[Rfam]
RNA sequence: GGCCUCCCAGUGCUUACCACAGGCUGUGUUCUUAUACUGACUAUAUAGAAAGAGGAGGCAAAAUAAACCUACCCCAUAUACAUACCUCAGCCCAGGUCCUGUGCCUGGUCUGUAUUGUAAAAGGGGACACUUGG
Numbered sequence: 001g002g003c004c005u006c007c008c009a010g011u012g013c014u015u016a017c018c019a020c021a022g023g024c025u026g027u028g029u030u031c032u033u034a035u036a037c038u039g040a041c042u043a044u045a046u047a048g049a050a051a052g053a054g055g056a057g058g059c060a061a062a063a064u065a066a067a068c069c070u071a072c073c074c075c076a077u078a079u080a081c082a083u084a085c086c087u088c089a090g091c092c093c094a095g096g097u098c099c100u101g102u103g104c105c106u107g108g109u110c111u112g113u114a115u116u117g118u119a120a121a122a123g124g125g126g127a128c129a130c131u132u133g134g
Stems, first nucleotide, its partner, number of pairs: 002059006021042002026037004072126004077121001088112003092108006

A member of the RNA family "Small nucleolar RNA SNORA51" from Castor canadensis, 134 nucleotides long.
Taxonomically the source falls in Castor (Eukaryota, Gnathostomata, Tetrapoda, Glires).
The family's RNA type in Rfam is H/ACA-box small nucleolar RNA.
ACA51 is a member of the H/ACA class of snoRNA that guide the sites of modification of uridines to pseudouridines.